[Rfam]
RNA sequence: GGAAUAUAAGAAUCUGACUUUUAACUUUUAACUAAAAAAACUAAGAAUCAGUUCUUAAAUAAUAGUUUUAAGAGACGAUUUUUAACUUUUUUAGUUAAAAAUUAAAAAACGAAUUCUUAUAUUCC
Number, nucleotide and partner (000 for none) at each position: 001g125002g124003a123004a122005u121006a120007u119008a118009a117010g116011a115012a114013u113014c000015u111016g110017a000018c000019u107020u106021u105022u104023a103024a102025c000026u100027u099028u098029u097030a096031a095032c094033u093034a092035a091036a090037a089038a088039a087040a000041c000042u084043a083044a082045g081046a080047a079048u000049c000050a000051g000052u000053u000054c000055u000056u000057a000058a000059a000060u000061a000062a000063u000064a000065g000066u000067u000068u000069u000070a000071a000072g000073a000074g000075a000076c000077g000078a000079u047080u046081u045082u044083u043084a042085a000086c000087u039088u038089u037090u036091u035092u034093a033094g032095u031096u030097a029098a028099a027100a026101a000102u024103u023104a022105a021106a020107a019108a000109a000110c016111g015112a000113a013114u012115u011116c010117u009118u008119a007120u006121a005122u004123u003124c002125c001
This 125-nucleotide RNA from Brassica oleracea belongs to the Rfam family "MIR9563 microRNA precursor family".
The match comes from Rfam's covariance-model search (95 bits).
Pairs were carried over by alignment from the consensus structure, which was predicted with RNAalifold.
The source organism's lineage runs through Eukaryota, Streptophyta, Streptophytina, Spermatophyta and Brassica oleracea.